A member of the RNA family "Small Cajal body specific RNA 11" from Trichechus manatus, 140 nucleotides long.
Rfam classes the family as a small Cajal body RNA.
The family's consensus secondary structure was predicted with RNAalifold.
Rfam's curators write: scaRNAs are a specific class of small nuclear RNAs which localise to the Cajal bodies and guide the modification of RNA polymerase II transcribed spliceosomal RNAs U1, U2, U4, U5 and U12. ACA57 belongs to the H/ACA box class of guide RNAs as it has the predicted hairpin-hinge-hairpin-tail structure, conserved H/ACA-box motifs and is found associated with GAR1. ACA57 is predicted to guide the pseudouridylation of the U5 spliceosomal RNA at position U43.
A reference for the family is Darzacq et al. (2002), "Cajal body-specific small nuclear RNAs: a novel class of 2'-O-methylation and pseudouridylation guide RNAs", EMBO J.
A search with the family's covariance model found it, with a score of 102 bits.
RNA sequence: UUAUCCUGGCCCAUGCUUUCCCUGGACCCCUGUGCUUAGCUCUGACAGGGUGUGUGUGGCAGGAUGCACAGCAGUCUCCUCUCAGUUUAGGAGGGGCAUCGCAAGUAUAGGGCCAACUAUUAAAGGCAUGAGAGGACAAU
Numbered sequence: 001u002u003a004u005c006c007u008g009g010c011c012c013a014u015g016c017u018u019u020c021c022c023u024g025g026a027c028c029c030c031u032g033u034g035c036u037u038a039g040c041u042c043u044g045a046c047a048g049g050g051u052g053u054g055u056g057u058g059g060c061a062g063g064a065u066g067c068a069c070a071g072c073a074g075u076c077u078c079c080u081c082u083c084a085g086u087u088u089a090g091g092a093g094g095g096g097c098a099u100c101g102c103a104a105g106u107a108u109a110g111g112g113c114c115a116a117c118u119a120u121u122a123a124a125g126g127c128a129u130g131a132g133a134g135g136a137c138a139a140u
Base pairs, nucleotide, nucleotide: 002066003065004064005063006062007061008060010059011058024055026053028050029049030048031047032046033045078135079134080133081132082131083130085127086126087125088124091121092120094118095117099112100111103108
Dot-bracket structure: .(((((((.((............(.(.((((((...........))))))..).)..)))))))))...........((((((.((((..((.((...((..(....)..))....)).))..))))..)))))).....